[Rfam]
RNA: Glycine riboswitch aptamer
Organism: Parundibacterium terreum
RNA sequence: GCUACUUGAUCGGGAGAGACCAGCAUCGCGCUGGCGCCGAAGGGGCUACAACCCAAAAACUCUCAGGCAAAAGGACUGGUCAAGGGAA
Dot-bracket structure: .....((((((((......((((.......)))).(((((..(((..............))))).))).......)))))))).....